[Rfam]
The family of this 45-nucleotide sequence from Actaea dahurica is "Plastid-ccsA-ndhD-1 3UTR RNA".
RNA sequence: UUGAUAACCAUUUGAAUCAAGUAGUGAUUCAAAUGGUUAUCAAAA
Numbered sequence: 001u002u003g004a005u006a007a008c009c010a011u012u013u014g015a016a017u018c019a020a021g022u023a024g025u026g027a028u029u030c031a032a033a034u035g036g037u038u039a040u041c042a043a044a045a
Stems, first nucleotide, its partner, number of pairs: 001043019
Source information:
Rfam 15.1 lists 1,322 matches to the family in 557 species. Rfam describes the family as follows. Plastid-ccsA-ndhD-1 is a non-coding RNA (ncRNA) recognised in plastids. It was found in the three prime untranslated region (3UTR) of ccsA and ndhD genes, its 3UTR location suggests a role in transcript maturation. NCBI's taxonomy places the organism under Eukaryota, Mesangiospermae, Ranunculaceae, Cimicifugeae, Actaea. The literature on the family includes a 2023 paper in Plant Commun by Richter et al., "Retrograde signaling in plants: A critical review focusing on the GUN pathway and beyond". Pairs were carried over by alignment from the consensus structure, which was predicted with LocARNA.